The family of this 116-nucleotide RNA from Halalkalibacter akibai is "SAM riboswitch aptamer (S box leader)". Lineage of the source: Bacteria > Bacillati > Bacillota > Halalkalibacter > Halalkalibacter akibai. Rfam describes the family as follows. The SAM riboswitch is found upstream of a number of genes which code for proteins involved in methionine or cysteine biosynthesis in Gram-positive bacteria.
[Rfam]
RNA sequence: AACUUAUCUAGAGAGGCGGAGGGACUGACCCUACGAAGCCCAGCAACCGUUUUGCAUUAGCCAUGCAAAAAAAGGUGCUAAAUUCAGCAGAAUGACUUUAUUCUGAAAGAUAAGAA
Numbered sequence: 001a002a003c004u005u006a007u008c009u010a011g012a013g014a015g016g017c018g019g020a021g022g023g024a025c026u027g028a029c030c031c032u033a034c035g036a037a038g039c040c041c042a043g044c045a046a047c048c049g050u051u052u053u054g055c056a057u058u059a060g061c062c063a064u065g066c067a068a069a070a071a072a073a074g075g076u077g078c079u080a081a082a083u084u085c086a087g088c089a090g091a092a093u094g095a096c097u098u099u100a101u102u103c104u105g106a107a108a109g110a111u112a113a114g115a116a
Base pairs, nucleotide, nucleotide: 003114004113005112006111007110008109013041015040016039017038021031022030023029025087026086027085028084042079043078044077045076047075048074050070051069052068053067054066055065056064083108088105089104090103091102092101093100